[Rfam]
A member of the RNA family "Lysine riboswitch aptamer" from Ureibacillus endophyticus, 183 nucleotides long. The organism belongs to Ureibacillus, within Bacteria.
RNA sequence: AGUAAGGAUAGAGGCGCAAAGACCAUUAGUACACAAUUCGAGGAGAAUGAGGUCCGUUGACAAUUGUCGAAAGGGGAAUUUGCCGAAGCUACAAGAUGCUCAUUUAAUCUUGAAGCUGGUUCUGUUGUUGAAUAAAUGCAGAACUGUCAUAUAGGUUUUACUAUAUGGAGGGCUAUCUUACGC
Numbered sequence: 001a002g003u004a005a006g007g008a009u010a011g012a013g014g015c016g017c018a019a020a021g022a023c024c025a026u027u028a029g030u031a032c033a034c035a036a037u038u039c040g041a042g043g044a045g046a047a048u049g050a051g052g053u054c055c056g057u058u059g060a061c062a063a064u065u066g067u068c069g070a071a072a073g074g075g076g077a078a079u080u081u082g083c084c085g086a087a088g089c090u091a092c093a094a095g096a097u098g099c100u101c102a103u104u105u106a107a108u109c110u111u112g113a114a115g116c117u118g119g120u121u122c123u124g125u126u127g128u129u130g131a132a133u134a135a136a137u138g139c140a141g142a143a144c145u146g147u148c149a150u151a152u153a154g155g156u157u158u159u160a161c162u163a164u165a166u167g168g169a170g171g172g173c174u175a176u177c178u179u180a181c182g183c
Stems, first nucleotide, its partner, number of pairs: 006178006016083005023076002033067006087117004092112006118145008128135001147168007